[Rfam]
RNA sequence: UGACGGGGGCCCGCACAAGCGGUGGAGUAUGUGGUUUAAUUCGACGCAACGCGAAGAACCUUACCAGGUCUUGACAUUGAUCGCGAUCUGCAGAAAUGCGGAGUUCUUCUUCGGAAGACGAGAAAACAGGUGGUGCACGGCUGUCGUCAGCUCGUGUCGUGAGAUGUUGGGUUAAGUCCCGCAACGAGCGCAACCCCUAUCAUUUGUUGCCAGCACGUAAAGGUGGGGACUCAAAUGAGACCGCCGCGGACAACGCGGAGGAAGGCGGGGACGACGUCAAGUCAUCAUGCCCCUUAUGACCUGGGCUACACACGUACUACAAUGGGUGUCAACAAAGAGAAGCGAAACCGCGAGGAAGAGCAAACCUCAAAAACACACCCCCAGUUCAGAUCGCAGGCUGCAACCCGCCUGCGUGAAGCAGGAAUCGCUAGUAAUCGCGGGUCAGCAUACCGCGGUGAAUACGUUCCCGGGCCUUGUACACACCGCCCGUCACACUAUGAGAGUCAGAAACACCCGAAGCCGGUGAGGUAACCGCAAGGAGCCAGCCGUCGAAGGCGGAGCUGAUGAUUGGAGUGAAGACGUAACAAGG
Numbered sequence: 001u002g003a004c005g006g007g008g009g010c011c012c013g014c015a016c017a018a019g020c021g022g023u024g025g026a027g028u029a030u031g032u033g034g035u036u037u038a039a040u041u042c043g044a045c046g047c048a049a050c051g052c053g054a055a056g057a058a059c060c061u062u063a064c065c066a067g068g069u070c071u072u073g074a075c076a077u078u079g080a081u082c083g084c085g086a087u088c089u090g091c092a093g094a095a096a097u098g099c100g101g102a103g104u105u106c107u108u109c110u111u112c113g114g115a116a117g118a119c120g121a122g123a124a125a126a127c128a129g130g131u132g133g134u135g136c137a138c139g140g141c142u143g144u145c146g147u148c149a150g151c152u153c154g155u156g157u158c159g160u161g162a163g164a165u166g167u168u169g170g171g172u173u174a175a176g177u178c179c180c181g182c183a184a185c186g187a188g189c190g191c192a193a194c195c196c197c198u199a200u201c202a203u204u205u206g207u208u209g210c211c212a213g214c215a216c217g218u219a220a221a222g223g224u225g226g227g228g229a230c231u232c233a234a235a236u237g238a239g240a241c242c243g244c245c246g247c248g249g250a251c252a253a254c255g256c257g258g259a260g261g262a263a264g265g266c267g268g269g270g271a272c273g274a275c276g277u278c279a280a281g282u283c284a285u286c287a288u289g290c291c292c293c294u295u296a297u298g299a300c301c302u303g304g305g306c307u308a309c310a311c312a313c314g315u316a317c318u319a320c321a322a323u324g325g326g327u328g329u330c331a332a333c334a335a336a337g338a339g340a341a342g343c344g345a346a347a348c349c350g351c352g353a354g355g356a357a358g359a360g361c362a363a364a365c366c367u368c369a370a371a372a373a374c375a376c377a378c379c380c381c382c383a384g385u386u387c388a389g390a391u392c393g394c395a396g397g398c399u400g401c402a403a404c405c406c407g408c409c410u411g412c413g414u415g416a417a418g419c420a421g422g423a424a425u426c427g428c429u430a431g432u433a434a435u436c437g438c439g440g441g442u443c444a445g446c447a448u449a450c451c452g453c454g455g456u457g458a459a460u461a462c463g464u465u466c467c468c469g470g471g472c473c474u475u476g477u478a479c480a481c482a483c484c485g486c487c488c489g490u491c492a493c494a495c496u497a498u499g500a501g502a503g504u505c506a507g508a509a510a511c512a513c514c515c516g517a518a519g520c521c522g523g524u525g526a527g528g529u530a531a532c533c534g535c536a537a538g539g540a541g542c543c544a545g546c547c548g549u550c551g552a553a554g555g556c557g558g559a560g561c562u563g564a565u566g567a568u569u570g571g572a573g574u575g576a577a578g579a580c581g582u583a584a585c586a587a588g589g
Base pairs, nucleotide, nucleotide: 001480002479003477004476005475007474008473009472010471011470012469013468015464016463019428020427021426022425023424024320026318027317028316029315030314031313032312033311034309035308040055041054042053043052064304065303066302067301068300069299070298077126078125081121082120083119087102088101089100090099091098092097105118106117107116108115129293130292132291133290134289135288139286140282141281142280143278145276146275150189151188152187153186154185155184156165157164158163168181169180170179171178195270196269197268198267200238201237202236203235204234205233206232210227211226214225215224216223241261242260244258245257246256247255248254324380325379326378327377328376329375337368338367339366342361343360348355349354387418392413393412394411395410396409397408398407434456435455436454437453438452439451440450483588485585488581489580493575494574495573496572498570499569500568503565504564505563506562507561511557513555514554519550521548522547523546524545527543528542529541532539533538
RNA: Bacterial small subunit ribosomal RNA, nucleotides 944 to 1532
Organism: uncultured bacterium